[Rfam]
RNA: UnaL2 LINE 3' element
RNA sequence: UGUAUGUACUACUGUAAGUCGCUCUGGAGAAGAGCGUCUGCUAAAUGACUCAAA
Numbered sequence: 001u002g003u004a005u006g007u008a009c010u011a012c013u014g015u016a017a018g019u020c021g022c023u024c025u026g027g028a029g030a031a032g033a034g035c036g037u038c039u040g041c042u043a044a045a046u047g048a049c050u051c052a053a054a
Stems, first nucleotide, its partner, number of pairs: 013043001014041003020036006